[Rfam]
RNA sequence: GGUCGACCGGAGCCGAUGAACCGGGAACCCACCAGCACCAAGGGGUGAAUCCACGUUCCGUGGUAGGGCGAUCUUCCCGCCCGAAUCCGUCAGCUAACCCGGUAGGCGGCUGGAUCACGCCGA
Numbered sequence: 001g002g003u004c005g006a007c008c009g010g011a012g013c014c015g016a017u018g019a020a021c022c023g024g025g026a027a028c029c030c031a032c033c034a035g036c037a038c039c040a041a042g043g044g045g046u047g048a049a050u051c052c053a054c055g056u057u058c059c060g061u062g063g064u065a066g067g068g069c070g071a072u073c074u075u076c077c078c079g080c081c082c083g084a085a086u087c088c089g090u091c092a093g094c095u096a097a098c099c100c101g102g103u104a105g106g107c108g109g110c111u112g113g114a115u116c117a118c119g120c121c122g123a
Stems, first nucleotide, its partner, number of pairs: 003019003020103006030042001043088003051063004066082004

c-di-AMP riboswitch aptamer (ydaO/yuaA leader): a 123-nucleotide RNA from Polymorphospora rubra.